[Rfam]
Rfam assigns this 68-nucleotide RNA sequence from Bacteroides sp. CAG:462 to the family "Bacteroidetes FopS (family of paralogous sRNAs)". Lineage of the source: Bacteria > Pseudomonadati > Bacteroidota > Bacteroidaceae > Bacteroides. A reference for the family is Ruttiger et al. (2025), "The global RNA-binding protein RbpB is a regulator of polysaccharide utilization in Bacteroides thetaiotaomicron", Nat Commun. A search with the family's covariance model found it, with a score of 78 bits. The RNA-binding protein RbpB and BTncRNA_FopS sRNA are involved in the post-transcription regulation of polysaccharide utilisation loci (PUL).
RNA sequence: GUGUUUUUCAUAGUAUUAGAUUUAAGGUUAAGUAAAGGUUGGGUCAAAGCGUUGACCCUUUUUUUAUG
Dot-bracket structure: ........................................(((((((....)))))))..........